[Rfam]
RNA sequence: GGAAGUUAAGAAACUGUUUCUUAACUUUUAACUAAAAAAGCUAAGAACCGGUUCUUAAACUGCUAAGAAUCGGUUCUUAGUUUUUUUAGUUAAAAGUUAAAAAACAGUUUCUUAACUUCC
Number, nucleotide and partner (000 for none) at each position: 001g120002g119003a118004a117005g116006u115007u114008a113009a112010g111011a110012a109013a108014c107015u106016g105017u104018u103019u102020c000021u100022u099023a098024a097025c096026u095027u094028u093029u092030a091031a090032c089033u088034a087035a086036a085037a084038a083039a082040g000041c080042u079043a078044a077045g076046a075047a074048c000049c000050g000051g000052u000053u000054c000055u000056u000057a000058a000059a000060c000061u000062g000063c000064u000065a000066a000067g000068a000069a000070u000071c000072g000073g000074u047075u046076c045077u044078u043079a042080g041081u000082u039083u038084u037085u036086u035087u034088a033089g032090u031091u030092a029093a028094a027095a026096g025097u024098u023099a022100a021101a000102a019103a018104a017105c016106a015107g014108u013109u012110u011111c010112u009113u008114a007115a006116c005117u004118u003119c002120c001
Shown here is a 120-nucleotide sequence from Brassica oleracea, a member of the family "MIR9563 microRNA precursor family".
It scores 107 bits against the family's covariance model.
Rfam links the family to the GO terms miRNA-mediated post-transcriptional gene silencing and RISC complex.
The family's consensus secondary structure was predicted with RNAalifold.